mraW RNA: a 106-nucleotide RNA from Rhodococcus maanshanensis. Taxonomically the source falls in Rhodococcus (Bacteria, Bacillati, Actinomycetota, Nocardiaceae). Rfam 15.1 lists 851 matches to the family in 821 species. Rfam classes the family as a cis-regulatory element.

RNA sequence: UACGGCGAGUGCCGCGAGGCCUCUGCCCGAACGCCGACCCUGACGCACUUCCCCAGCGCCAGGUUCGGUCAAUCGGACAGGGACCUCGAGGCAUUCGCCACUCUUC
Numbered sequence: 001u002a003c004g005g006c007g008a009g010u011g012c013c014g015c016g017a018g019g020c021c022u023c024u025g026c027c028c029g030a031a032c033g034c035c036g037a038c039c040c041u042g043a044c045g046c047a048c049u050u051c052c053c054c055a056g057c058g059c060c061a062g063g064u065u066c067g068g069u070c071a072a073u074c075g076g077a078c079a080g081g082g083a084c085c086u087c088g089a090g091g092c093a094u095u096c097g098c099c100a101c102u103c104u105u106c
Stems, first nucleotide, its partner, number of pairs: 010093004015088002018085002021082005027076004033070001034068004039063004044058003